Rfam assigns this 82-nucleotide RNA sequence from Compostimonas suwonensis to the family "ZMP/ZTP riboswitch aptamer (pfl RNA motif)". Rfam links the family to the GO terms regulation of purine nucleotide biosynthetic process and one-carbon metabolic process. The organism belongs to Compostimonas, within Bacteria. The match comes from Rfam's covariance-model search (52 bits).
[Rfam]
RNA sequence: CGCGGAUGUCGCGACUGGCGUUCAGAUGGUCACCAUCGGGGAGCGAUUGACACGGAUUCGGCCGUACGCCUGGGCCGAAACG
Numbered sequence: 001c002g003c004g005g006a007u008g009u010c011g012c013g014a015c016u017g018g019c020g021u022u023c024a025g026a027u028g029g030u031c032a033c034c035a036u037c038g039g040g041g042a043g044c045g046a047u048u049g050a051c052a053c054g055g056a057u058u059c060g061g062c063c064g065u066a067c068g069c070c071u072g073g074g075c076c077g078a079a080a081c082g
Stems, first nucleotide, its partner, number of pairs: 004051001008047005015040002017070005026036004059077005